[Rfam]
RNA sequence: ACUAUCGUGAGGUAGCAGGGAGAGGAAGGGAUAGCGAAAUCGUGGCUCUACGAACAGGAACGUGAUAGUAAGGCGUAAAUAGCGGAUAAGGAGGCUUCAAACUCUAAAGUCCAAAAAGGUAGUCGUAACCUAUAUGCGUAAAUCACGAGAGUAAUUGAAUUCGGACU
Numbered sequence: 001a002c003u004a005u006c007g008u009g010a011g012g013u014a015g016c017a018g019g020g021a022g023a024g025g026a027a028g029g030g031a032u033a034g035c036g037a038a039a040u041c042g043u044g045g046c047u048c049u050a051c052g053a054a055c056a057g058g059a060a061c062g063u064g065a066u067a068g069u070a071a072g073g074c075g076u077a078a079a080u081a082g083c084g085g086a087u088a089a090g091g092a093g094g095c096u097u098c099a100a101a102c103u104c105u106a107a108a109g110u111c112c113a114a115a116a117a118g119g120u121a122g123u124c125g126u127a128a129c130c131u132a133u134a135u136g137c138g139u140a141a142a143u144c145a146c147g148a149g150a151g152u153a154a155u156u157g158a159a160u161u162c163g164g165a166c167u
Stems, first nucleotide, its partner, number of pairs: 002015005034166001035164001043157002045152005061147006073139003077135001079133004084112004090105004
Rfam assigns this 167-nucleotide RNA sequence from Streptococcus pneumoniae to the family "Group II catalytic intron D1-D4-3". The sequence is in the family's curated seed alignment. Group II introns are found in rRNA, tRNA and mRNA of organelles in fungi, plants and protists, and also in mRNA in bacteria. Gene Ontology term of the family: Group II intron splicing.